[Rfam]
RNA sequence: GGCCGGGAGAUGAUGAGACAGAAUGCAUAGUUCAGAUGAGAUCUGAAUCAUGAUCCUUGAUUACAAUAUCCUAAAUUGUCUUUCGCUCCUGUCUGAUUCCGGGC
Number, nucleotide and partner (000 for none) at each position: 001g000002g000003c000004c101005g100006g099007g098008a097009g000010a000011u000012g000013a000014u000015g000016a000017g000018a000019c000020a000021g000022a000023a000024u000025g000026c000027a000028u000029a000030g000031u000032u000033c000034a000035g000036a000037u000038g000039a000040g000041a000042u000043c000044u000045g000046a000047a000048u000049c000050a000051u000052g000053a000054u000055c000056c000057u000058u000059g000060a000061u000062u000063a000064c000065a000066a000067u000068a000069u000070c000071c000072u000073a000074a000075a000076u000077u000078g000079u000080c000081u000082u000083u000084c000085g000086c000087u000088c000089c000090u000091g000092u000093c000094u000095g000096a000097u008098u007099c006100c005101g004102g000103g000104c000

Overview
Small nucleolar RNA snR60/Z15/Z230/Z193/J17: a 104-nucleotide sequence from Adiantum capillus-veneris. Taxonomically the source falls in Adiantum (Eukaryota, Viridiplantae, Embryophyta, Pteridaceae). A search with the family's covariance model found it, with a score of 59 bits. It is annotated as a C/D-box small nucleolar RNA.